[Rfam]
RNA sequence: UGGAUCCUUUUUUUGGUGUCAUAUGAUGAAGCUUCAUAGGGCAGAUUCUGAGCUGAGAAAUCAAAUUUCUCUCCACUGAUACUCUCUCUAUGCCAUCUGAAGACACCAAGUAUUGC
Numbered sequence: 001u002g003g004a005u006c007c008u009u010u011u012u013u014u015g016g017u018g019u020c021a022u023a024u025g026a027u028g029a030a031g032c033u034u035c036a037u038a039g040g041g042c043a044g045a046u047u048c049u050g051a052g053c054u055g056a057g058a059a060a061u062c063a064a065a066u067u068u069c070u071c072u073c074c075a076c077u078g079a080u081a082c083u084c085u086c087u088c089u090a091u092g093c094c095a096u097c098u099g100a101a102g103a104c105a106c107c108a109a110g111u112a113u114u115g116c
Stems, first nucleotide, its partner, number of pairs: 013109008031096001035092003039085003044080001047079002050076001052074001055071005
The family of this 116-nucleotide sequence from Hemiprocne comata is "Small nucleolar RNA SNORD90". The match comes from Rfam's covariance-model search (55 bits). About the family: snoRNA HBII-295 belongs to the family of C/D snoRNAs. On this family, see Huttenhofer et al., EMBO J 2001: "RNomics: an experimental approach that identifies 201 candidates for novel, small, non-messenger RNAs in mouse". Rfam links the family to the GO terms RNA processing and nucleolus. Lineage of the source: Eukaryota > Metazoa > Teleostomi > Apodidae > Hemiprocne.